[Rfam]
RNA: Streptomyces-metH RNA
Organism: Streptomyces minutiscleroticus
RNA sequence: CCCGUCCGGCCCGUGGACUGCCCCGCGGUCCCGUGCCGCUCCCGGCUACUCUGGCUGCGUGCGCCUCCUCCGGGAAGCCGCAUAGCCGACAGCCGUCGCACUCCAGGGAGCUUCUUCAUG
Numbered sequence: 001c002c003c004g005u006c007c008g009g010c011c012c013g014u015g016g017a018c019u020g021c022c023c024c025g026c027g028g029u030c031c032c033g034u035g036c037c038g039c040u041c042c043c044g045g046c047u048a049c050u051c052u053g054g055c056u057g058c059g060u061g062c063g064c065c066u067c068c069u070c071c072g073g074g075a076a077g078c079c080g081c082a083u084a085g086c087c088g089a090c091a092g093c094c095g096u097c098g099c100a101c102u103c104c105a106g107g108g109a110g111c112u113u114c115u116u117c118a119u120g
Base pairs, nucleotide, nucleotide: 060082061081062080063079065077066076068074085099086098088097089096090095